[Rfam]
RNA: mir-2807 microRNA precursor family
Organism: Bombyx mori
RNA sequence: GUAACUAGAAUUUGUAUGCAGUUGGAACAGCGCCCUUAGCGGCAAACGUACGCAAACGUUCCAACUGCAUACAAAUUUGAAUUA
Numbered sequence: 001g002u003a004a005c006u007a008g009a010a011u012u013u014g015u016a017u018g019c020a021g022u023u024g025g026a027a028c029a030g031c032g033c034c035c036u037u038a039g040c041g042g043c044a045a046a047c048g049u050a051c052g053c054a055a056a057c058g059u060u061c062c063a064a065c066u067g068c069a070u071a072c073a074a075a076u077u078u079g080a081a082u083u084a
Stems, first nucleotide, its partner, number of pairs: 008078009018068001020066009034052001036050001039047001